[Rfam]
RNA sequence: UAAGUCAGAAAGAAUGGGAUACAUAGCGAUGGUCCUUUCCGGCGCGGAAAGGUGCCGGAUGGCGAAACGGCAUGCGCGAAGCGUACACAGGGAAGGACGCAGGCCGCAGGGGAGUCGCAGCCCCCUAAAGCAAUUUAGCCCCGUAAUGAGUGUUCUAGAUGCGGACGGCGACGGUGUUAACGUGACCGGAAGCCAGCAUCGGCGGGAUCGCGAUGGCGAGAUCCCGUCGGGUCCGUCGGGGUUCGAAGCUG
Numbered sequence: 001u002a003a004g005u006c007a008g009a010a011a012g013a014a015u016g017g018g019a020u021a022c023a024u025a026g027c028g029a030u031g032g033u034c035c036u037u038u039c040c041g042g043c044g045c046g047g048a049a050a051g052g053u054g055c056c057g058g059a060u061g062g063c064g065a066a067a068c069g070g071c072a073u074g075c076g077c078g079a080a081g082c083g084u085a086c087a088c089a090g091g092g093a094a095g096g097a098c099g100c101a102g103g104c105c106g107c108a109g110g111g112g113a114g115u116c117g118c119a120g121c122c123c124c125c126u127a128a129a130g131c132a133a134u135u136u137a138g139c140c141c142c143g144u145a146a147u148g149a150g151u152g153u154u155c156u157a158g159a160u161g162c163g164g165a166c167g168g169c170g171a172c173g174g175u176g177u178u179a180a181c182g183u184g185a186c187c188g189g190a191a192g193c194c195a196g197c198a199u200c201g202g203c204g205g206g207a208u209c210g211c212g213a214u215g216g217c218g219a220g221a222u223c224c225c226g227u228c229g230g231g232u233c234c235g236u237c238g239g240g241g242u243u244c245g246a247a248g249c250u251g
Stems, first nucleotide, its partner, number of pairs: 012037002016035001020031002024219001026217002039091002042088001043083002045078002052073006135245001138242006161236006167194003172188004199230011

A member of the RNA family "Group II catalytic intron D1-D4-6" from Pelagicoccus enzymogenes, 251 nucleotides long. Taxonomically the source falls in Pelagicoccus (Bacteria, Verrucomicrobiota, Puniceicoccales, Pelagicoccaceae).